[Rfam]
RNA sequence: GAUAUAAUUUGGCAAACUCCUCCAAAGAGGUGGGCGCAAAGCCAUGGGCCUAAAGUUUUUCUGGCUUUUUCGCGAAAAACUAUGGCAGCCAGGCUGCUGGU
Numbered sequence: 001g002a003u004a005u006a007a008u009u010u011g012g013c014a015a016a017c018u019c020c021u022c023c024a025a026a027g028a029g030g031u032g033g034g035c036g037c038a039a040a041g042c043c044a045u046g047g048g049c050c051u052a053a054a055g056u057u058u059u060u061c062u063g064g065c066u067u068u069u070u071c072g073c074g075a076a077a078a079a080c081u082a083u084g085g086c087a088g089c090c091a092g093g094c095u096g097c098u099g100g101u
Stems, first nucleotide, its partner, number of pairs: 012037002017032001019030004040095004045091003048086003055080007

The family of this 101-nucleotide sequence from Tepidanaerobacter acetatoxydans is "c-di-GMP-I riboswitch aptamer". The source organism's lineage runs through Bacteria, Clostridia, Tepidanaerobacteraceae, Tepidanaerobacter and Tepidanaerobacter acetatoxydans.